[Rfam]
RNA sequence: AUCGUACAAAGGCCACUUUUUCGAAAGAAAAAGGCGCAAAGUUCGGCGUCUACCGUGUAUACCCUUACACCAUGACGGUCCAACUGCCGUA
Numbered sequence: 001a002u003c004g005u006a007c008a009a010a011g012g013c014c015a016c017u018u019u020u021u022c023g024a025a026a027g028a029a030a031a032a033g034g035c036g037c038a039a040a041g042u043u044c045g046g047c048g049u050c051u052a053c054c055g056u057g058u059a060u061a062c063c064c065u066u067a068c069a070c071c072a073u074g075a076c077g078g079u080c081c082a083a084c085u086g087c088c089g090u091a
Stems, first nucleotide, its partner, number of pairs: 012037002017032006040085004045081002048076003055070004
Overview:
The record is a 91-nucleotide RNA from Isachenkonia alkalipeptolytica, which matches "c-di-GMP-I riboswitch aptamer" in Rfam. A search with the family's covariance model found it, with a score of 55 bits.